[Rfam]
Small nucleolar RNA MBII-202: an 82-nucleotide sequence from Larimichthys crocea.
It scores 65 bits against the family's covariance model.
The literature on the family includes a 2001 paper in EMBO J by Huttenhofer et al., "RNomics: an experimental approach that identifies 201 candidates for novel, small, non-messenger RNAs in mouse".
RNA sequence: UGAUGACAAAUCUCCGGAAUCUCUGUAUUUCUUUGAUGAAACUUUUGAACCCCUUUUCUGAUUACUGCUUUUUAAAAUUGGU
Numbered sequence: 001u002g003a004u005g006a007c008a009a010a011u012c013u014c015c016g017g018a019a020u021c022u023c024u025g026u027a028u029u030u031c032u033u034u035g036a037u038g039a040a041a042c043u044u045u046u047g048a049a050c051c052c053c054u055u056u057u058c059u060g061a062u063u064a065c066u067g068c069u070u071u072u073u074a075a076a077a078u079u080g081g082u
Base pairs, nucleotide, nucleotide: 002082004080005079006078